[Rfam]
RNA: Acido-Lenti-1 RNA
Organism: Desulfonema magnum
RNA sequence: CCCGGCAGUAAAUUGCCGGGCUAUUUUCAGAUGUCCCUCCGGGACU
Numbered sequence: 001c002c003c004g005g006c007a008g009u010a011a012a013u014u015g016c017c018g019g020g021c022u023a024u025u026u027u028c029a030g031a032u033g034u035c036c037c038u039c040c041g042g043g044a045c046u
Stems, first nucleotide, its partner, number of pairs: 001020008033045005